[Rfam]
RNA sequence: AUGAGCCACGAGGGGAGUCCGAAAUGGGCUGAGAGGAAGCGGUAACGCUUCGACCCUAAGAACCUGUAAGUUCAUGCUUGCGCAGGGAUGUGGACCUGACUGUCA
Numbered sequence: 001a002u003g004a005g006c007c008a009c010g011a012g013g014g015g016a017g018u019c020c021g022a023a024a025u026g027g028g029c030u031g032a033g034a035g036g037a038a039g040c041g042g043u044a045a046c047g048c049u050u051c052g053a054c055c056c057u058a059a060g061a062a063c064c065u066g067u068a069a070g071u072u073c074a075u076g077c078u079u080g081c082g083c084a085g086g087g088a089u090g091u092g093g094a095c096c097u098g099a100c101u102g103u104c105a
Base pairs, nucleotide, nucleotide: 006093007092008091009090010089011057012056013055014054017029018028019027020026021025036051037050038049039048040047063086064085065084066083067080068079069078070077

Overview: TPP riboswitch aptamer (THI element): a 105-nucleotide RNA from Salisediminibacterium halotolerans. The family's consensus secondary structure is taken from published work. It scores 63 bits against the family's covariance model.